[Rfam]
RNA sequence: GUGAUGUCCUUUCUAAUGCUGUAAAAUGCUUUCCAAAGUUUUACAGUUUCGCUUUAGGACAAAAGGAAUAUGGCAAAAUUAUUACCAUAAGCUAUUUUACCUUUGAAUAGUUUAUAAAAUAUUUUGCUACAGUU
Numbered sequence: 001g002u003g004a005u006g007u008c009c010u011u012u013c014u015a016a017u018g019c020u021g022u023a024a025a026a027u028g029c030u031u032u033c034c035a036a037a038g039u040u041u042u043a044c045a046g047u048u049u050c051g052c053u054u055u056a057g058g059a060c061a062a063a064a065g066g067a068a069u070a071u072g073g074c075a076a077a078a079u080u081a082u083u084a085c086c087a088u089a090a091g092c093u094a095u096u097u098u099a100c101c102u103u104u105g106a107a108u109a110g111u112u113u114a115u116a117a118a119a120u121a122u123u124u125u126g127c128u129a130c131a132g133u134u
Stems, first nucleotide, its partner, number of pairs: 005061006019046008027037001072128008